mir-146 microRNA precursor family: an 87-nucleotide RNA sequence from Tupaia belangeri.
A search with the family's covariance model found it, with a score of 75 bits.
The base pairs follow the family's consensus structure, which was predicted with WAR.
On this family, see Lagos-Quintana et al., Curr Biol 2002: "Identification of tissue-specific microRNAs from mouse".
[Rfam]
RNA sequence: UGGUAUGCUCAGCUUUGAGAACUGAAUUCCAUGGGUUGUGUCAGCGUCAGACCUGUGAAAUUCAGUUCUUCAGCUGGGGUAUCUCUG
Numbered sequence: 001u002g003g004u005a006u007g008c009u010c011a012g013c014u015u016u017g018a019g020a021a022c023u024g025a026a027u028u029c030c031a032u033g034g035g036u037u038g039u040g041u042c043a044g045c046g047u048c049a050g051a052c053c054u055g056u057g058a059a060a061u062u063c064a065g066u067u068c069u070u071c072a073g074c075u076g077g078g079g080u081a082u083c084u085c086u087g
Stems, first nucleotide, its partner, number of pairs: 008078002011075003018069008033054004

Notes:
Its family is annotated with miRNA-mediated post-transcriptional gene silencing and RISC complex in the Gene Ontology.